[Rfam]
RNA sequence: AAAGAUCGAUACCGAGGGGGGGGCUAAUGCCCCGGAGAAUUUCUGCUCACGCAGGCAGCCUGUACCGCGUACAGUCUGAAACUCCCUAUACCUCAACAAACUGCCACUCCGGCGUAAAGGUAUCGUUCU
Numbered sequence: 001a002a003a004g005a006u007c008g009a010u011a012c013c014g015a016g017g018g019g020g021g022g023g024c025u026a027a028u029g030c031c032c033c034g035g036a037g038a039a040u041u042u043c044u045g046c047u048c049a050c051g052c053a054g055g056c057a058g059c060c061u062g063u064a065c066c067g068c069g070u071a072c073a074g075u076c077u078g079a080a081a082c083u084c085c086c087u088a089u090a091c092c093u094c095a096a097c098a099a100a101c102u103g104c105c106a107c108u109c110c111g112g113c114g115u116a117a118a119g120g121u122a123u124c125g126u127u128c129u
Base pairs, nucleotide, nucleotide: 002129004127005126007125008124009123010122011121012120013119020033021032022031023030034085035084036083037082042055043054044053045052046051056078057077058076061073062072063071064070065069
This 129-nucleotide sequence from Salmonella enterica belongs to the Rfam family "EFASI RNA".
By type it is a small RNA.
NCBI's taxonomy places the organism under Bacteria, Gammaproteobacteria, Enterobacteriaceae, Salmonella enterica, Salmonella enterica subsp. enterica serovar Dublin.
The base pairs follow the family's consensus structure, which is taken from published work.